[Rfam]
RNA sequence: AGCACAUAUGAUGAUCAUAAGGGACUUAAUACUGAAGUAUGAUGUCACCUGUCAGCAGAAACUGAUGUGC
Numbered sequence: 001a002g003c004a005c006a007u008a009u010g011a012u013g014a015u016c017a018u019a020a021g022g023g024a025c026u027u028a029a030u031a032c033u034g035a036a037g038u039a040u041g042a043u044g045u046c047a048c049c050u051g052u053c054a055g056c057a058g059a060a061a062c063u064g065a066u067g068u069g070c
Stems, first nucleotide, its partner, number of pairs: 002070005
Dot-bracket structure: .(((((...........................................................)))))
The family of this 70-nucleotide RNA from Todus mexicanus is "Small nucleolar RNA SNORD82". Rfam's curators write: snoRNA U82 or Z25 is found in both humans and mice. It scores 60 bits against the family's covariance model. For this family Rfam cites "Purified box C/D snoRNPs are able to reproduce site-specific 2'-O-methylation of target RNA in vitro" (Galardi et al., Mol Cell Biol, 2002). NCBI's taxonomy places the organism under Eukaryota, Vertebrata, Teleostomi, Neoaves, Todus.